[Rfam]
RNA sequence: CUGUAGAAGAGCAAUAAACUGGACGGCGCAUAAGGGGGAAGUGUUACUCACUGCGGAGUCGAUACGAAAGGUCGAUGAGUAAGGAAAGGACACAGAACUUCUACGCCGGUCAGAAGACAAAAUGAGUUCAGAUUGAAGGAGUCACCUGAGAUCGGGGGUCAAACCAGAUCAAAAGGGAAACUUCAGACUGGACUGAGGGGCCUAAGGGCGAUUUUGUCAAAAUGGCUUCUACUGACCCGUCUUGAAACACGG
Numbered sequence: 001c002u003g004u005a006g007a008a009g010a011g012c013a014a015u016a017a018a019c020u021g022g023a024c025g026g027c028g029c030a031u032a033a034g035g036g037g038g039a040a041g042u043g044u045u046a047c048u049c050a051c052u053g054c055g056g057a058g059u060c061g062a063u064a065c066g067a068a069a070g071g072u073c074g075a076u077g078a079g080u081a082a083g084g085a086a087a088g089g090a091c092a093c094a095g096a097a098c099u100u101c102u103a104c105g106c107c108g109g110u111c112a113g114a115a116g117a118c119a120a121a122a123u124g125a126g127u128u129c130a131g132a133u134u135g136a137a138g139g140a141g142u143c144a145c146c147u148g149a150g151a152u153c154g155g156g157g158g159u160c161a162a163a164c165c166a167g168a169u170c171a172a173a174a175g176g177g178a179a180a181c182u183u184c185a186g187a188c189u190g191g192a193c194u195g196a197g198g199g200g201c202c203u204a205a206g207g208g209c210g211a212u213u214u215u216g217u218c219a220a221a222a223u224g225g226c227u228u229c230u231a232c233u234g235a236c237c238c239g240u241c242u243u244g245a246a247a248c249a250c251g252g
Stems, first nucleotide, its partner, number of pairs: 001234001003232007012084001015083001018080003089218004094213001237252004
Shown here is a 252-nucleotide part of an RNA from Tetrahymena pyriformis, a member of the family "Eukaryotic large subunit ribosomal RNA".
Lineage of the source: Eukaryota > Alveolata > Oligohymenophorea > Tetrahymenina > Tetrahymena.
The base pairs follow the family's consensus structure, which is taken from published work.